[Rfam]
RNA sequence: GCCAACCCGUGCUCUGCUAAUGGGGUAGGAUCCGACGCCUCGCUGGAAGGCUAACAUAGGCUCUCCUACUCAACUCCCAGACCGGCACGUCCACGUCGUGCAGAGCGGUCACAUGCGUUGCCAAGGGGUGCAAGGGCUGGUUGGUCCCUUUUCUUCUCUGGUCAAGAAGAAGCUAGUAACGCAUGGCCAAGCCGGAGGGA
Numbered sequence: 001g002c003c004a005a006c007c008c009g010u011g012c013u014c015u016g017c018u019a020a021u022g023g024g025g026u027a028g029g030a031u032c033c034g035a036c037g038c039c040u041c042g043c044u045g046g047a048a049g050g051c052u053a054a055c056a057u058a059g060g061c062u063c064u065c066c067u068a069c070u071c072a073a074c075u076c077c078c079a080g081a082c083c084g085g086c087a088c089g090u091c092c093a094c095g096u097c098g099u100g101c102a103g104a105g106c107g108g109u110c111a112c113a114u115g116c117g118u119u120g121c122c123a124a125g126g127g128g129u130g131c132a133a134g135g136g137c138u139g140g141u142u143g144g145u146c147c148c149u150u151u152u153c154u155u156c157u158c159u160g161g162u163c164a165a166g167a168a169g170a171a172g173c174u175a176g177u178a179a180c181g182c183a184u185g186g187c188c189a190a191g192c193c194g195g196a197g198g199g200a
Stems, first nucleotide, its partner, number of pairs: 011106007023071008032060002075200004083194004087099003091108002112185010132150005152170006
RNA: drz-agam-2-2 ribozyme
Organism: Anopheles stephensi